[Rfam]
RNA: drz-agam-2-2 ribozyme
Organism: Anopheles gambiae
RNA sequence: AUUGAAAUGAACAAGUUAUUCGGGGGUAGAUCCGAAGCCUCUAGAAGGUUAAGAUAGGCUCUCCAUCUCCUACUCCUACUCAAUACUCCCCCGUCGUACAGAACGGUAACAUGUCUCUCAAUUAUCCAAGCUUGGAUAUACGGGGAAACCCAGCUCCUUGGGCGGAUGGGUUGCAUAGCUAAAUUGAGAGGG
Numbered sequence: 001a002u003u004g005a006a007a008u009g010a011a012c013a014a015g016u017u018a019u020u021c022g023g024g025g026g027u028a029g030a031u032c033c034g035a036a037g038c039c040u041c042u043a044g045a046a047g048g049u050u051a052a053g054a055u056a057g058g059c060u061c062u063c064c065a066u067c068u069c070c071u072a073c074u075c076c077u078a079c080u081c082a083a084u085a086c087u088c089c090c091c092c093g094u095c096g097u098a099c100a101g102a103a104c105g106g107u108a109a110c111a112u113g114u115c116u117c118u119c120a121a122u123u124a125u126c127c128a129a130g131c132u133u134g135g136a137u138a139u140a141c142g143g144g145g146a147a148a149c150c151c152a153g154c155u156c157c158u159u160g161g162g163c164g165g166a167u168g169g170g171u172u173g174c175a176u177a178g179c180u181a182a183a184u185u186g187a188g189a190g191g192g
Stems, first nucleotide, its partner, number of pairs: 017098001023070002025067003029063002032058002074192004079188006085097002089106002111176004117170003124167004132153004137148001155162002